[Rfam]
RNA sequence: AGAGUAAGUCAGAUAAUUGCGCCGUUUACGGUGAGGAAAGUCCGGGCUUCACAGAGCAGGGUGCCGGCUAACGGCCGGUAAAGGUGACUUUAAGGAUAGUGCAACAGAAAAUAAAUGCCUUGAUUUAUUAAGGUGAUUGUGGAAAUGUGCGGUAAGAGCGCACAGGGAAGAUGGCAACUGAAUUCCCGUGUAAACCCCACCUGAAGCAACUUUGGGAAUGUUAAGCUUGCUCGGCGUGUUCCCUUGAAAGGCUUGAGCGUAUAGGUAACUGUACGUCGAGAUAGAUGAUUAUCUAAUACAGAACCCGGCUUAUAGAUUUGCUCAUUUU
Numbered sequence: 001a002g003a004g005u006a007a008g009u010c011a012g013a014u015a016a017u018u019g020c021g022c023c024g025u026u027u028a029c030g031g032u033g034a035g036g037a038a039a040g041u042c043c044g045g046g047c048u049u050c051a052c053a054g055a056g057c058a059g060g061g062u063g064c065c066g067g068c069u070a071a072c073g074g075c076c077g078g079u080a081a082a083g084g085u086g087a088c089u090u091u092a093a094g095g096a097u098a099g100u101g102c103a104a105c106a107g108a109a110a111a112u113a114a115a116u117g118c119c120u121u122g123a124u125u126u127a128u129u130a131a132g133g134u135g136a137u138u139g140u141g142g143a144a145a146u147g148u149g150c151g152g153u154a155a156g157a158g159c160g161c162a163c164a165g166g167g168a169a170g171a172u173g174g175c176a177a178c179u180g181a182a183u184u185c186c187c188g189u190g191u192a193a194a195c196c197c198c199a200c201c202u203g204a205a206g207c208a209a210c211u212u213u214g215g216g217a218a219u220g221u222u223a224a225g226c227u228u229g230c231u232c233g234g235c236g237u238g239u240u241c242c243c244u245u246g247a248a249a250g251g252c253u254u255g256a257g258c259g260u261a262u263a264g265g266u267a268a269c270u271g272u273a274c275g276u277c278g279a280g281a282u283a284g285a286u287g288a289u290u291a292u293c294u295a296a297u298a299c300a301g302a303a304c305c306c307g308g309c310u311u312a313u314a315g316a317u318u319u320g321c322u323c324a325u326u327u328u
Stems, first nucleotide, its partner, number of pairs: 002323009011313001012293007020033005038311003042308005047206004054232004059202005064078005079093001080091004094197002099195002101191003115138001117134007146164006165186004173178001210250004214243006223237001225235003257276008
Source information: Bacterial RNase P class A: a 328-nucleotide sequence from Firmicutes bacterium CAG:41.